[Rfam]
RNA sequence: UGGUUGAAGUAGAGGCUGCCCGCUUCUCACCUGAAUGACGCAAUUGCAGUUAACAGGUAUUAACACGUUGAAUUAAUUACGCUGUCUUAGAGCGUAUGUAUAUAUAGCGGGCGGACAUCUUCUGAAAUGUCCGUCCUUUUUUUAUGGA
Numbered sequence: 001u002g003g004u005u006g007a008a009g010u011a012g013a014g015g016c017u018g019c020c021c022g023c024u025u026c027u028c029a030c031c032u033g034a035a036u037g038a039c040g041c042a043a044u045u046g047c048a049g050u051u052a053a054c055a056g057g058u059a060u061u062a063a064c065a066c067g068u069u070g071a072a073u074u075a076a077u078u079a080c081g082c083u084g085u086c087u088u089a090g091a092g093c094g095u096a097u098g099u100a101u102a103u104a105u106a107g108c109g110g111g112c113g114g115a116c117a118u119c120u121u122c123u124g125a126a127a128u129g130u131c132c133g134u135c136c137u138u139u140u141u142u143u144a145u146g147g148a
Stems, first nucleotide, its partner, number of pairs: 011027006029058003037051003040047002110135009

The family of this 148-nucleotide RNA from Lysinibacillus halotolerans is "Ribosomal protein L20 leader". The family's RNA type in Rfam is cis-regulatory leader. It scores 59 bits against the family's covariance model. NCBI's taxonomy places the organism under Bacteria, Bacillati, Bacilli, Bacillaceae, Lysinibacillus.